[Rfam]
RNA sequence: CUCCACAGCUACUGGUCUGGAACUGUUCAGAACUGUAGCAGUUGCAGGAUUCCUUCUGUGGAAAAUUAACUGUUGCACAGCAUCAAGCUCCUUCUCAGAUCCCCUGAGAAGGGUUUUCUAUGUAACAAACAAUC
Numbered sequence: 001c002u003c004c005a006c007a008g009c010u011a012c013u014g015g016u017c018u019g020g021a022a023c024u025g026u027u028c029a030g031a032a033c034u035g036u037a038g039c040a041g042u043u044g045c046a047g048g049a050u051u052c053c054u055u056c057u058g059u060g061g062a063a064a065a066u067u068a069a070c071u072g073u074u075g076c077a078c079a080g081c082a083u084c085a086a087g088c089u090c091c092u093u094c095u096c097a098g099a100u101c102c103c104c105u106g107a108g109a110a111g112g113g114u115u116u117u118c119u120a121u122g123u124a125a126c127a128a129a130c131a132a133u134c
Stems, first nucleotide, its partner, number of pairs: 003061004017047003021043005075123003079119001089113008
Dot-bracket structure: ..((((..........(((.(((((.............))))).)))..........)))).............(((.(.........((((((((.........)))))))).....).)))...........
This 134-nucleotide RNA from Turnix velox belongs to the Rfam family "Small nucleolar RNA SNORA41". By type it is an H/ACA-box small nucleolar RNA. On this family, see Huttenhofer et al., EMBO J 2001: "RNomics: an experimental approach that identifies 201 candidates for novel, small, non-messenger RNAs in mouse". ACA41 is a member of the H/ACA class of snoRNA that guide the sites of modification of uridines to pseudouridines. Pairs were carried over by alignment from the consensus structure, which was predicted with PFOLD. The organism belongs to Turnix, within Eukaryota. Rfam links the family to the GO terms RNA processing and nucleolus. The match comes from Rfam's covariance-model search (98 bits).